[Rfam]
RNA: Listeria sRNA rliD
Organism: Thermaerobacillus caldiproteolyticus
RNA sequence: CAGUUAAUGGGAAAAAAUCAACAUUUUUCGCCUCUUUGGACGCGGUUGCGGUGCUUAAAACCACAGUAUCACCGUAGCGGACUAACACCGCCCCGUUCGCUUGUUUUGCUAACUGACCAAUUUCCACAACAAGCGGCCGUCCCGCCCAAUCUAUGGAAAAAACACGUUUUCCUUGCUCCAUAUAGAUGAGUACUCCUCUCUAUGUACAAAUCAAAAAUAUCAACGAAGAAUUAUCAUUGGUUUUAGUAUGGACGAAUGUACAGCAAUCUAUCAAUUAUGAGGAUGAUCACCAUUUCUAGAAAUUUCUUUAUGUAACUAGCAAAAAAGCGGGAAUGCUCCCGCUUUUUUCUUA
Numbered sequence: 001c002a003g004u005u006a007a008u009g010g011g012a013a014a015a016a017a018u019c020a021a022c023a024u025u026u027u028u029c030g031c032c033u034c035u036u037u038g039g040a041c042g043c044g045g046u047u048g049c050g051g052u053g054c055u056u057a058a059a060a061c062c063a064c065a066g067u068a069u070c071a072c073c074g075u076a077g078c079g080g081a082c083u084a085a086c087a088c089c090g091c092c093c094c095g096u097u098c099g100c101u102u103g104u105u106u107u108g109c110u111a112a113c114u115g116a117c118c119a120a121u122u123u124c125c126a127c128a129a130c131a132a133g134c135g136g137c138c139g140u141c142c143c144g145c146c147c148a149a150u151c152u153a154u155g156g157a158a159a160a161a162a163c164a165c166g167u168u169u170u171c172c173u174u175g176c177u178c179c180a181u182a183u184a185g186a187u188g189a190g191u192a193c194u195c196c197u198c199u200c201u202a203u204g205u206a207c208a209a210a211u212c213a214a215a216a217a218u219a220u221c222a223a224c225g226a227a228g229a230a231u232u233a234u235c236a237u238u239g240g241u242u243u244u245a246g247u248a249u250g251g252a253c254g255a256a257u258g259u260a261c262a263g264c265a266a267u268c269u270a271u272c273a274a275u276u277a278u279g280a281g282g283a284u285g286a287u288c289a290c291c292a293u294u295u296c297u298a299g300a301a302a303u304u305u306c307u308u309u310a311u312g313u314a315a316c317u318a319g320c321a322a323a324a325a326a327g328c329g330g331g332a333a334u335g336c337u338c339c340c341g342c343u344u345u346u347u348u349c350u351u352a
Stems, first nucleotide, its partner, number of pairs: 003313002009308005014269001016267001018266001022263001024260001027079001029077001030043002033040002047068003051064001053062001055060001102254005109246004113240001116237001122158005128152001135145001165225004274293002317352003321348011